[Rfam]
RNA sequence: AAUAUUCACCCAUCACUACGGAUCGUCGGGCACGUACCUGCCCGUGAAGGGAAAAACAU
Number, nucleotide and partner (000 for none) at each position: 001a000002a000003u000004a000005u000006u000007c000008a000009c051010c050011c049012a000013u047014c046015a045016c000017u000018a000019c000020g000021g000022a000023u000024c000025g000026u000027c044028g043029g042030g041031c040032a039033c000034g000035u000036a000037c000038c000039u032040g031041c030042c029043c028044g027045u015046g014047a013048a000049g011050g010051g009052a000053a000054a000055a000056a000057c000058a000059u000

Rfam assigns this 59-nucleotide RNA sequence from Arthrobacter sp. CAU 1506 to the family "msiK RNA". Lineage of the source: Bacteria > Bacillati > Actinomycetota > Micrococcales > Arthrobacter. By type it is a cis-regulatory element.